Cia-dependent small RNA csRNA1: a 94-nucleotide RNA sequence from Streptococcus australis. Taxonomically the source falls in Streptococcus australis (Bacteria, Bacillati, Bacillota, Lactobacillales). A reference for the family is Halfmann et al. (2007), "Identification of the genes directly controlled by the response regulator CiaR in Streptococcus pneumoniae: five out of 15 promoters drive expression of small non-coding RNAs", Mol Microbiol.
RNA sequence: AUCAAAUGAAGACCUCCUAACUUUGUUUGAUAGAAAAUCCUAAACUUUUUCAUAAUAAUCUCCCAUAAAGGCCACCAAAUCAGGUGGCUUUUUU
Numbered sequence: 001a002u003c004a005a006a007u008g009a010a011g012a013c014c015u016c017c018u019a020a021c022u023u024u025g026u027u028u029g030a031u032a033g034a035a036a037a038u039c040c041u042a043a044a045c046u047u048u049u050u051c052a053u054a055a056u057a058a059u060c061u062c063c064c065a066u067a068a069a070g071g072c073c074a075c076c077a078a079a080u081c082a083g084g085u086g087g088c089u090u091u092u093u094u
Stems, first nucleotide, its partner, number of pairs: 001031011068091009